[Rfam]
The family of this 227-nucleotide RNA from Diaphorina citri is "R2 RNA element". The family's RNA type in Rfam is cis-regulatory element. NCBI's taxonomy places the organism under Eukaryota, Panarthropoda, Altocrustacea, Paraneoptera, Diaphorina. Rfam links the family to the GO term regulation of reverse transcription.
RNA sequence: ACAUGCUCGAAUUAUUAUUAUCAUUUAAGAGGUUUGUAGGCCCUGAAGUAAUGUCCAAUACCCUGAAGUAAUGUCCAAUAUAUCUGGUUCCAGGGCCCUAAUGGGAAGAGGGAGAGGUUGGGUUUUAGUGGGUCUGGAUGUCCCGGUAUCCGGACAUCAAUCCCACACUCCCCGUUGCAAAGGUUUUUGCAAUGGGCGUCUUUUUGAAGAUUUCCCCCUCUCCAAAA
Number, nucleotide and partner (000 for none) at each position: 001a000002c000003a000004u000005g000006c000007u000008c000009g000010a000011a000012u000013u000014a000015u000016u000017a000018u000019u000020a000021u000022c000023a000024u000025u000026u000027a000028a000029g000030a000031g000032g000033u000034u000035u000036g000037u000038a000039g097040g096041c095042c094043c093044u092045g000046a000047a000048g000049u000050a000051a000052u000053g000054u000055c000056c000057a000058a000059u000060a000061c000062c000063c000064u000065g000066a000067a000068g000069u000070a000071a000072u000073g000074u000075c000076c000077a000078a000079u000080a000081u000082a000083u000084c000085u000086g000087g000088u000089u000090c000091c000092a044093g043094g042095g041096c040097c039098c000099u000100a000101a000102u224103g223104g222105g000106a000107a000108g000109a000110g000111g000112g000113a221114g220115a219116g218117g217118u000119u000120g215121g214122g000123u000124u000125u000126u000127a000128g166129u165130g164131g163132g162133u000134c000135u000136g000137g158138a157139u156140g155141u154142c153143c000144c152145g151146g150147u000148a000149u000150c146151c145152g144153g142154a141155c140156a139157u138158c137159a000160a000161u000162c132163c131164c130165a129166c128167a000168c198169u000170c196171c195172c194173c000174g000175u000176u000177g000178c000179a000180a000181a000182g000183g000184u000185u000186u000187u000188u000189g000190c000191a000192a000193u000194g172195g171196g170197c000198g168199u000200c000201u000202u000203u000204u000205u000206g000207a000208a000209g000210a000211u000212u000213u000214c121215c120216c000217c117218c116219u115220c114221u113222c104223c103224a102225a000226a000227a000